[Rfam]
RNA sequence: CUCUUCUCUCUAAAGCACCCUGCUGAAACUGCAGAAGCCAAACCUCACAGGUUUAGCCCUGUGGCCGUGUAAGCAUGGGUACACCAGGGAAGUAAAUUAAAGGCACAGUAUCGGAAAUGAGGCUUGGAGGGACCUCUUUCUUAAUGUCCAGUGUCCUUCGUCUCAAGAUCCUGUGUUACAUGU
Number, nucleotide and partner (000 for none) at each position: 001c000002u000003c000004u000005u000006c000007u000008c000009u000010c000011u000012a000013a000014a000015g000016c000017a000018c079019c078020c000021u075022g074023c073024u072025g000026a000027a000028a068029c067030u000031g065032c000033a000034g059035a000036a000037g000038c056039c000040a054041a053042a052043c051044c050045u049046c000047a000048c000049a045050g044051g043052u042053u041054u040055a000056g038057c000058c000059c034060u000061g000062u000063g000064g000065c031066c000067g029068u028069g000070u000071a000072a024073g023074c022075a021076u000077g000078g019079g018080u000081a000082c000083a000084c000085c000086a000087g000088g000089g000090a000091a000092g000093u000094a000095a000096a000097u000098u000099a000100a000101a000102g177103g176104c175105a174106c173107a172108g171109u000110a169111u000112c000113g000114g000115a000116a000117a000118u000119g000120a000121g000122g000123c000124u000125u000126g000127g152128a000129g000130g149131g148132a147133c000134c000135u000136c000137u000138u000139u000140c000141u000142u000143a000144a000145u000146g000147u132148c131149c130150a000151g000152u127153g000154u000155c000156c000157u000158u000159c000160g000161u000162c000163u000164c000165a000166a000167g000168a000169u110170c000171c108172u107173g106174u105175g104176u103177u102178a000179c000180a000181u000182g000183u000
This 183-nucleotide RNA sequence from Scophthalmus maximus belongs to the Rfam family "Small nucleolar RNA SNORA81". A search with the family's covariance model found it, with a score of 99 bits. Pairs were carried over by alignment from the consensus structure, which was predicted with WAR. Its family is annotated with RNA processing and nucleolus in the Gene Ontology.